[Rfam]
RNA sequence: ACACCGGCUUAGCUCAAUGGUUACUUCGUACUGUUUCACGAAACCACCCAACGGUCCGCGGGCCACGGGUUCGACCAUGGGCGCUGUCCAGUGUUUUU
Numbered sequence: 001a002c003a004c005c006g007g008c009u010u011a012g013c014u015c016a017a018u019g020g021u022u023a024c025u026u027c028g029u030a031c032u033g034u035u036u037c038a039c040g041a042a043a044c045c046a047c048c049c050a051a052c053g054g055u056c057c058g059c060g061g062g063c064c065a066c067g068g069g070u071u072c073g074a075c076c077a078u079g080g081g082c083g084c085u086g087u088c089c090a091g092u093g094u095u096u097u098u
Stems, first nucleotide, its partner, number of pairs: 002093003006089002012082004017078004026074003
Dot-bracket structure: .(((.((....((((.((((.....(((...........................................))))))))))).....)).))).....
The family of this 98-nucleotide RNA sequence from Channa argus is "Vault RNA". A search with the family's covariance model found it, with a score of 60 bits. The source organism's lineage runs through Eukaryota, Deuterostomia, Neoteleostei, Channoidei and Channa. Pairs were carried over by alignment from the consensus structure, which is taken from published work. This family of RNAs are found as part of the enigmatic vault ribonucleoprotein complex. The complex consists of a major vault protein (MVP), two minor vault proteins (VPARP and TEP1), and several small untranslated RNA molecules. It has been suggested that the vault complex is involved in drug resistance.